[Rfam]
RNA sequence: UUAACUCAACUGUUAUAACACACACGAAUCGGCACGUGCGCCGGGGUGCUCCGAAGCUUAACGCUGACAGGGAGUCGGAAGCAUGGGAUUCGUGGAGGCAUAAC
Numbered sequence: 001u002u003a004a005c006u007c008a009a010c011u012g013u014u015a016u017a018a019c020a021c022a023c024a025c026g027a028a029u030c031g032g033c034a035c036g037u038g039c040g041c042c043g044g045g046g047u048g049c050u051c052c053g054a055a056g057c058u059u060a061a062c063g064c065u066g067a068c069a070g071g072g073a074g075u076c077g078g079a080a081g082c083a084u085g086g087g088a089u090u091c092g093u094g095g096a097g098g099c100a101u102a103a104c
Stems, first nucleotide, its partner, number of pairs: 023094008035085005041078003048075005
t44 RNA: a 104-nucleotide sequence from Morganella morganii. Lineage of the source: Bacteria > Pseudomonadota > Enterobacterales > Morganella > Morganella morganii subsp. morganii. For this family Rfam cites "Transcriptome analysis of Escherichia coli using high-density oligonucleotide probe arrays" (Tjaden et al., Nucleic Acids Res, 2002). A search with the family's covariance model found it, with a score of 78 bits.